This 156-nucleotide RNA sequence from Carya illinoinensis belongs to the Rfam family "small nucleolar RNA snoR134".
Rfam 15.1 lists 792 matches to the family in 228 species.
For this family Rfam cites "Mining small RNA sequencing data: a new approach to identify small nucleolar RNAs in Arabidopsis" (Chen and Wu, Nucleic Acids Res, 2009).
RNA sequence: CUGCACGAUGCACUACGCCGGGCUUGUCUGAAUGAGUAAUCAAUCGAUGACGACGAAAGCCCCAUUGCUCGUGCCAAAACGAUCCGACGUCAAGUGUUGCAGUUCAGCCAUUCUCUUUUUCCCCGGCUGAGCUGUGUCAAAUCGACGCCCACAUCU
Numbered sequence: 001c002u003g004c005a006c007g008a009u010g011c012a013c014u015a016c017g018c019c020g021g022g023c024u025u026g027u028c029u030g031a032a033u034g035a036g037u038a039a040u041c042a043a044u045c046g047a048u049g050a051c052g053a054c055g056a057a058a059g060c061c062c063c064a065u066u067g068c069u070c071g072u073g074c075c076a077a078a079a080c081g082a083u084c085c086g087a088c089g090u091c092a093a094g095u096g097u098u099g100c101a102g103u104u105c106a107g108c109c110a111u112u113c114u115c116u117u118u119u120u121c122c123c124c125g126g127c128u129g130a131g132c133u134g135u136g137u138c139a140a141a142u143c144g145a146c147g148c149c150c151a152c153a154u155c156u
Stems, first nucleotide, its partner, number of pairs: 003074006010068002020062005025056001027053002086149001088147004095139002098136006107127003